[Rfam]
RNA sequence: AAAAUAAGUGCUAUGAUAAAUAGCCAGACAUAUUUUGCUUUCCGAGUAGUGCCUUGAAAUAUAGGCACUUUUUUUAUCUU
Numbered sequence: 001a002a003a004a005u006a007a008g009u010g011c012u013a014u015g016a017u018a019a020a021u022a023g024c025c026a027g028a029c030a031u032a033u034u035u036u037g038c039u040u041u042c043c044g045a046g047u048a049g050u051g052c053c054u055u056g057a058a059a060u061a062u063a064g065g066c067a068c069u070u071u072u073u074u075u076a077u078c079u080u
Stems, first nucleotide, its partner, number of pairs: 001075004006070003022039003026035003050067005